[Rfam]
RNA sequence: AUCCCUUCUGUCGUGUAUUCCCGAUUAAUGCAGCCUCGUAUGUUUCA
Numbered sequence: 001a002u003c004c005c006u007u008c009u010g011u012c013g014u015g016u017a018u019u020c021c022c023g024a025u026u027a028a029u030g031c032a033g034c035c036u037c038g039u040a041u042g043u044u045u046c047a
Stems, first nucleotide, its partner, number of pairs: 010025004032044003
Shown here is a 47-nucleotide sequence from Medicago truncatula, a member of the family "Plastid-ycf3 group II-D1 intron". The family's consensus secondary structure was predicted with LocARNA. For this family Rfam cites "Retrograde signaling in plants: A critical review focusing on the GUN pathway and beyond" (Richter et al., Plant Commun, 2023).